This 98-nucleotide sequence from Pan troglodytes belongs to the Rfam family "mir-544 microRNA precursor family". A reference for the family is Chiang et al. (2010), "Mammalian microRNAs: experimental evaluation of novel and previously annotated genes", Genes Dev. NCBI's taxonomy places the organism under Eukaryota, Opisthokonta, Simiiformes, Homininae, Pan. The family has 16 seed sequences and 10,750 matches in Rfam 15.1. Gene Ontology terms of the family: RISC complex and miRNA-mediated post-transcriptional gene silencing.
[Rfam]
RNA sequence: AUCAGCUGGGGAUCUUGUUAAAAUGCAGAGUCUGAUUUAGUAGGUCUGGGUUGGGGCCUAAGAUUCUGCAUUUCUAACAAUUUCCCAGGGGAUGGGAU
Dot-bracket structure: ..(.....(((...(((((((((.(((((.(((...........................))).))))).))).))))))..))).....).......